[Rfam]
RNA sequence: GCAGAUAGGAGAAGAGUUGCUUUAGAAUCUUUUUAUCAAAUAGAUUAAUUAAUUCUAAAGAGGAAAGUCUGGACUCCUUAGAGAAAGGAUACUGGAUAACUUCCAGCUAGGGUGACCUAAGGGAAAGUGCAACAGAAAGUAUACAGCCUGAGAAGGUAAUGGUGAAAAGGCAUGGUAAGAGCAUACCGCGCAUUUGGCAACAAAUGUGGCAUUGCAAACCCUAUCCGGAGCAAGACCAAAUAUAAGUAAUGUGAUUCUCUACACUAUAAUUACUUGGGUAGGUCGCUUGAGGGUUAAAGUAAUUUAACUCCUAGAUAGAUAACUCUUUUAAACAGAAUCCAGCUUAUAUCCUAUCUGCGAUA
Numbered sequence: 001g002c003a004g005a006u007a008g009g010a011g012a013a014g015a016g017u018u019g020c021u022u023u024a025g026a027a028u029c030u031u032u033u034u035a036u037c038a039a040a041u042a043g044a045u046u047a048a049u050u051a052a053u054u055c056u057a058a059a060g061a062g063g064a065a066a067g068u069c070u071g072g073a074c075u076c077c078u079u080a081g082a083g084a085a086a087g088g089a090u091a092c093u094g095g096a097u098a099a100c101u102u103c104c105a106g107c108u109a110g111g112g113u114g115a116c117c118u119a120a121g122g123g124a125a126a127g128u129g130c131a132a133c134a135g136a137a138a139g140u141a142u143a144c145a146g147c148c149u150g151a152g153a154a155g156g157u158a159a160u161g162g163u164g165a166a167a168a169g170g171c172a173u174g175g176u177a178a179g180a181g182c183a184u185a186c187c188g189c190g191c192a193u194u195u196g197g198c199a200a201c202a203a204a205u206g207u208g209g210c211a212u213u214g215c216a217a218a219c220c221c222u223a224u225c226c227g228g229a230g231c232a233a234g235a236c237c238a239a240a241u242a243u244a245a246g247u248a249a250u251g252u253g254a255u256u257c258u259c260u261a262c263a264c265u266a267u268a269a270u271u272a273c274u275u276g277g278g279u280a281g282g283u284c285g286c287u288u289g290a291g292g293g294u295u296a297a298a299g300u301a302a303u304u305u306a307a308c309u310c311c312u313a314g315a316u317a318g319a320u321a322a323c324u325c326u327u328u329u330a331a332a333c334a335g336a337a338u339c340c341a342g343c344u345u346a347u348a349u350c351c352u353a354u355c356u357g358c359g360a361u362a
Stems, first nucleotide, its partner, number of pairs: 001358010011347001012327007020060009065345003069342005074230004087226005092106005107121001108119004122221002127219002129215003144161002146157004169187002172184003188210001189208008234284004244275006255269002258266001291310008
Dot-bracket structure: ((((((((((((((((((.(((((((((.......................)))))))))....[[[.[[[[[((((.........((((((((((.....)))))(((((....)))).)((...(((((............((((((....))))..)).......((.(((.......))).))(((((((((....)))))))).)..)))..)))))))))))))...((((......((((((.....((.(.......).)))))))).....))))......((((((((....))))))))..........)))))))..........]]]]]]]].).))))))))))....
RNA: Bacterial RNase P class A